The family of this 71-nucleotide RNA is "HDV ribozyme from F. prausnitzii". Rfam's curators put it in the seed alignment. For this family Rfam cites "Widespread occurrence of self-cleaving ribozymes" (Webb et al., Science, 2009). Rfam 15.1 lists 3,803 matches to the family in 91 species.
[Rfam]
RNA sequence: GCUACUCAAAAAAAGACAGCCUCCACGCGGCGAGCAGCGGGCAACGGGAAAGACCCGGCAGAUAGUCUUUA
Numbered sequence: 001g002c003u004a005c006u007c008a009a010a011a012a013a014a015g016a017c018a019g020c021c022u023c024c025a026c027g028c029g030g031c032g033a034g035c036a037g038c039g040g041g042c043a044a045c046g047g048g049a050a051a052g053a054c055c056c057g058g059c060a061g062a063u064a065g066u067c068u069u070u071a
Stems, first nucleotide, its partner, number of pairs: 001038003005034003019031003045057004